[Rfam]
RNA sequence: CACGUUCAACCCACUUCGGUGGGUCGCAAGUAAGUCGCGGAACGGAUUCGUUCAUCCAGGAAACUGGACGCAAACGACUGAAGGAACGGGUU
Numbered sequence: 001c002a003c004g005u006u007c008a009a010c011c012c013a014c015u016u017c018g019g020u021g022g023g024u025c026g027c028a029a030g031u032a033a034g035u036c037g038c039g040g041a042a043c044g045g046a047u048u049c050g051u052u053c054a055u056c057c058a059g060g061a062a063a064c065u066g067g068a069c070g071c072a073a074a075c076g077a078c079u080g081a082a083g084g085a086a087c088g089g090g091u092u
Stems, first nucleotide, its partner, number of pairs: 003088005009024005027089001033079005
RNA: Glutamine riboswitch aptamer (glnA leader)